[Rfam]
Rfam assigns this 62-nucleotide RNA from Chlorobium ferrooxidans to the family "Lnt RNA".
The sequence is in the family's curated seed alignment.
The source organism's lineage runs through Bacteria, Pseudomonadati, Chlorobiota, Chlorobium and Chlorobium ferrooxidans.

RNA sequence: CAGGAAAAUUUUGAGCAGUCCAUUCCUGUUAAAUAACAGCUUAGAAUAAAUUUAAAGAAUAA
Numbered sequence: 001c002a003g004g005a006a007a008a009u010u011u012u013g014a015g016c017a018g019u020c021c022a023u024u025c026c027u028g029u030u031a032a033a034u035a036a037c038a039g040c041u042u043a044g045a046a047u048a049a050a051u052u053u054a055a056a057g058a059a060u061a062a
Stems, first nucleotide, its partner, number of pairs: 001028006
Description:
By type it is a cis-regulatory element.